[Rfam]
Rfam assigns this 134-nucleotide RNA from Nannospalax galili to the family "Small nucleolar RNA SNORA31". ACA31 (SNORA31) belongs to the H/ACA class of snoRNAs which are thought to guide the sites of modification of uridines to pseudouridines. ACA31 is predicted to guide the pseudouridylation of U3713 in 28S rRNA and U218 in 18S rRNA. This family includes the mouse homologue snoMBI-161. The family's RNA type in Rfam is H/ACA-box small nucleolar RNA. NCBI's taxonomy places the organism under Eukaryota, Craniata, Theria, Spalacinae, Nannospalax.
RNA sequence: GUACAUCUAUUUGACAGACCCUAGGCAGUUACUGUCUUCUUCUAAGGUCUCCCUUACAGAUGCAAGAAGAAAGUCUCCUCGUGUUUUCUGUCUGUCUGACUGUGGCAGCCAAGACAGACUAGAGGAACACAGAA
Numbered sequence: 001g002u003a004c005a006u007c008u009a010u011u012u013g014a015c016a017g018a019c020c021c022u023a024g025g026c027a028g029u030u031a032c033u034g035u036c037u038u039c040u041u042c043u044a045a046g047g048u049c050u051c052c053c054u055u056a057c058a059g060a061u062g063c064a065a066g067a068a069g070a071a072a073g074u075c076u077c078c079u080c081g082u083g084u085u086u087u088c089u090g091u092c093u094g095u096c097u098g099a100c101u102g103u104g105g106c107a108g109c110c111a112a113g114a115c116a117g118a119c120u121a122g123a124g125g126a127a128c129a130c131a132g133a134a
Stems, first nucleotide, its partner, number of pairs: 002064001004062005013052001016050005023041003027037002076126005084117001087114003092108005